Notes: This 128-nucleotide RNA from Microcebus murinus belongs to the Rfam family "Small nucleolar RNA SNORA25". ACA25 is a member of the H/ACA class of snoRNA that guide the sites of modification of uridines to pseudouridines. A search with the family's covariance model found it, with a score of 88 bits.
RNA sequence: AGAACAUUUCAAAGAUGUCAGGUGGGGCUGUGAAACCCAAGAGCUCUUAACGGUAUGACCAAAGAUUGGAGUUCUCUGUAGGAUGCACAGCACUCAGUAGUGCUGUUUUUUUGUGAAGAUAUAAAUUA
Numbered sequence: 001a002g003a004a005c006a007u008u009u010c011a012a013a014g015a016u017g018u019c020a021g022g023u024g025g026g027g028c029u030g031u032g033a034a035a036c037c038c039a040a041g042a043g044c045u046c047u048u049a050a051c052g053g054u055a056u057g058a059c060c061a062a063a064g065a066u067u068g069g070a071g072u073u074c075u076c077u078g079u080a081g082g083a084u085g086c087a088c089a090g091c092a093c094u095c096a097g098u099a100g101u102g103c104u105g106u107u108u109u110u111u112u113g114u115g116a117a118g119a120u121a122u123a124a125a126u127u128a
Stems, first nucleotide, its partner, number of pairs: 002060001005057003014048002017045001019043001023040001026037002073121001075119003080114001082112002087106008